A member of the RNA family "7SK RNA" from Amazona aestiva, 329 nucleotides long. About the family: 7SK was discovered as an abundant small nuclear RNA in the mid-70s but a possible function has only recently been suggested. Two independent studies have found that 7SK RNA binds the CDK9/cyclin T complex (known as elongation factor P-TEFb). P-TEFb activates transcription by phosphorylating the C-terminal domain of RNA polymerase II. This process is negatively regulated by the 7SK RNP. The secondary structure of 7SK RNA shown here was proposed by Wasserman and Steitz on the basis of chemical modification and enzymatic cleavage experiments. This family contains a number of annotated pseudogenes and 7SK derived repeats. The threshold is artificially high to minimise the pseudogene count. Pairs were carried over by alignment from the consensus structure, which is taken from published work. The literature on the family includes a 2002 paper in Curr Biol by Blencowe, "Transcription: surprising role for an elusive small nuclear RNA".
RNA sequence: GGAUGUGAGGGUGAUCUGGCUGCAACAUCUGUCACCCUAUUGAUGGCCAGGGUUGGUUCGGCUGAUCUGGCUGGCUAGGUGGGUGUCCCCUUCCUCCCUCACCACUCCAUGUGCAUUAGUCCCGAAGCUGAAUGCUCGGUCGACGUGGAUGACCUUCCCCGAUACAGGUGGUACUGUUCAUCAGUCAUGGGUAUACGGUAGCUGUGCUCCCCUCCUAGAACCUCCAAACAAGCUCAAGGUCCAGUUGUAGGAGAACGUAGGGUAAUCAAGCUUCCAAGACUGCAGACACAUCCAACUGAGGCGCUGCACAUGACAGUCUGGCAUACUUU
Dot-bracket structure: (((.(((((((.((...((.....(((((((((.(((((..(((.(((...........)))..))))))..))...)))))))))..)).))..)))))))...))).......((..(.((((.((.....))))))(((....(((......))).)))...)...)).............................(((....(.((((.(......((((..((((.............)))).))))...).)))).)....)))......................((..(.(.(((((.......))))..).).)...))
Numbered sequence: 001g002g003a004u005g006u007g008a009g010g011g012u013g014a015u016c017u018g019g020c021u022g023c024a025a026c027a028u029c030u031g032u033c034a035c036c037c038u039a040u041u042g043a044u045g046g047c048c049a050g051g052g053u054u055g056g057u058u059c060g061g062c063u064g065a066u067c068u069g070g071c072u073g074g075c076u077a078g079g080u081g082g083g084u085g086u087c088c089c090c091u092u093c094c095u096c097c098c099u100c101a102c103c104a105c106u107c108c109a110u111g112u113g114c115a116u117u118a119g120u121c122c123c124g125a126a127g128c129u130g131a132a133u134g135c136u137c138g139g140u141c142g143a144c145g146u147g148g149a150u151g152a153c154c155u156u157c158c159c160c161g162a163u164a165c166a167g168g169u170g171g172u173a174c175u176g177u178u179c180a181u182c183a184g185u186c187a188u189g190g191g192u193a194u195a196c197g198g199u200a201g202c203u204g205u206g207c208u209c210c211c212c213u214c215c216u217a218g219a220a221c222c223u224c225c226a227a228a229c230a231a232g233c234u235c236a237a238g239g240u241c242c243a244g245u246u247g248u249a250g251g252a253g254a255a256c257g258u259a260g261g262g263u264a265a266u267c268a269a270g271c272u273u274c275c276a277a278g279a280c281u282g283c284a285g286a287c288a289c290a291u292c293c294a295a296c297u298g299a300g301g302c303g304c305u306g307c308a309c310a311u312g313a314c315a316g317u318c319u320g321g322c323a324u325a326c327u328u329u
Stems, first nucleotide, its partner, number of pairs: 001108003005102007013093002018090002025086009035074002037070003042067003046062003116171002120166001122139004127135002140162003147158003201271003208264001210262004215257001222253004228248004294329002298324001300322001302320001303317004